Rfam assigns this 274-nucleotide RNA from Nannospalax galili to the family "Mason-Pfizer monkey virus packaging signal". Rfam describes the family as follows. This family represents a group of sequences that are related to the Mason-Pfizer monkey virus (MPMV) packaging signal. Pairs were carried over by alignment from the consensus structure, which was predicted with PFOLD. It scores 136 bits against the family's covariance model. The family's RNA type in Rfam is cis-regulatory element. Taxonomically the source falls in Nannospalax (Eukaryota, Bilateria, Euarchontoglires, Rodentia).
RNA sequence: UGGUGCCCAACGUGGGGCCUGGAUACCGGGGGACAAUGUGUGGGUCUGAUGACGAUAAAAGAAGGGGUGCACCCAUUCAAAUAGUUUGGAGACAUCGCGGUAGCCUGCUGUGACCAAGCCUACAGGUAAGUUGGUCGUUCAAUCAUGGGGCAAGAAUUGAGUCAGCAUCAGAAAUAUGUGACACAGCUAAGAGAAGCUUUACAGGCAAGAGGAGUAAAGGUUACAACUGAGAAUUUAUUUCAUUUCUUUGAUUUUGUGAAAGACAUCUGCCCAU
Numbered sequence: 001u002g003g004u005g006c007c008c009a010a011c012g013u014g015g016g017g018c019c020u021g022g023a024u025a026c027c028g029g030g031g032g033a034c035a036a037u038g039u040g041u042g043g044g045u046c047u048g049a050u051g052a053c054g055a056u057a058a059a060a061g062a063a064g065g066g067g068u069g070c071a072c073c074c075a076u077u078c079a080a081a082u083a084g085u086u087u088g089g090a091g092a093c094a095u096c097g098c099g100g101u102a103g104c105c106u107g108c109u110g111u112g113a114c115c116a117a118g119c120c121u122a123c124a125g126g127u128a129a130g131u132u133g134g135u136c137g138u139u140c141a142a143u144c145a146u147g148g149g150g151c152a153a154g155a156a157u158u159g160a161g162u163c164a165g166c167a168u169c170a171g172a173a174a175u176a177u178g179u180g181a182c183a184c185a186g187c188u189a190a191g192a193g194a195a196g197c198u199u200u201a202c203a204g205g206c207a208a209g210a211g212g213a214g215u216a217a218a219g220g221u222u223a224c225a226a227c228u229g230a231g232a233a234u235u236u237a238u239u240u241c242a243u244u245u246c247u248u249u250g251a252u253u254u255u256g257u258g259a260a261a262g263a264c265a266u267c268u269g270c271c272c273a274u
Stems, first nucleotide, its partner, number of pairs: 006031003012026003037051003086126002088123001093118001096112005136150001138149004158201003161197002209249006218236005259274001262271001264269001